A member of the RNA family "Small nucleolar RNA SNORD22" from Echinops telfairi, 127 nucleotides long. For this family Rfam cites "A mammalian gene with introns instead of exons generating stable RNA products" (Tycowski et al., Nature, 1996). Pairs were carried over by alignment from the consensus structure, which was predicted with PFOLD. Lineage of the source: Eukaryota > Metazoa > Vertebrata > Tenrecinae > Echinops. Rfam links the family to the GO terms nucleolus and RNA processing.
RNA sequence: CCCCAAUGAGGAAACAAAUCACAUAUCUUACCUCCUGUCCUAUCCACAGAACCUGAAAAGGUGAACCCACUGGGACUGGCUCGGGGAGGAGAGGAGAACUUGUUCCAGAAGGAAUUAUUUGAGGGGU
Numbered sequence: 001c002c003c004c005a006a007u008g009a010g011g012a013a014a015c016a017a018a019u020c021a022c023a024u025a026u027c028u029u030a031c032c033u034c035c036u037g038u039c040c041u042a043u044c045c046a047c048a049g050a051a052c053c054u055g056a057a058a059a060g061g062u063g064a065a066c067c068c069a070c071u072g073g074g075a076c077u078g079g080c081u082c083g084g085g086g087a088g089g090a091g092a093g094g095a096g097a098a099c100u101u102g103u104u105c106c107a108g109a110a111g112g113a114a115u116u117a118u119u120u121g122a123g124g125g126g127u
Base pairs, nucleotide, nucleotide: 001126002125003124004123